[Rfam]
RNA sequence: UAACCUAUCUAGUAAUGGAUAGCUGAACAAUCAGAAGUCAGCCGAAGUCGUAGUACUUGGUUUGCUCGAGAGAAUCAAGGAAGGAC
Numbered sequence: 001u002a003a004c005c006u007a008u009c010u011a012g013u014a015a016u017g018g019a020u021a022g023c024u025g026a027a028c029a030a031u032c033a034g035a036a037g038u039c040a041g042c043c044g045a046a047g048u049c050g051u052a053g054u055a056c057u058u059g060g061u062u063u064g065c066u067c068g069a070g071a072g073a074a075u076c077a078a079g080g081a082a083g084g085a086c
Base pairs, nucleotide, nucleotide: 001025002024005022006021007020008019009018010017011016038045039044047086048085049084056079057078058077059076060075061074
The record is an 86-nucleotide RNA from Heyndrickxia shackletonii, which matches "Group II catalytic intron D1-D4-1" in Rfam. Rfam 15.1 lists 2,508 matches to the family in 1,144 species. Lineage of the source: Bacteria > Bacillati > Bacillota > Bacilli > Heyndrickxia. Pairs were carried over by alignment from the consensus structure.